[Rfam]
RNA sequence: CCAGUGGUCUUUGGUGGUUCCAAAGUGUACUACAGAAAAACUUUGGAUUUCAGCCACACUGAGGCCACUGG
Number, nucleotide and partner (000 for none) at each position: 001c071002c070003a069004g068005u000006g066007g065008u064009c063010u062011u061012u000013g000014g057015u056016g055017g054018u053019u000020c046021c045022a044023a043024a042025g041026u040027g033028u032029a000030c000031u000032a028033c027034a000035g000036a000037a000038a000039a000040a026041c025042u024043u023044u022045g021046g020047a000048u000049u000050u000051c000052a000053g018054c017055c016056a015057c014058a000059c000060u000061g011062a010063g009064g008065c007066c006067a000068c004069u003070g002071g001
MAT2A 3'UTR stem loop E: a 71-nucleotide sequence from Astyanax mexicanus. NCBI's taxonomy places the organism under Eukaryota, Characiphysae, Acestrorhamphidae, Acestrorhamphinae, Astyanax. The family's RNA type in Rfam is cis-regulatory element. On this family, see Parker et al., Genome Res 2011: "New families of human regulatory RNA structures identified by comparative analysis of vertebrate genomes".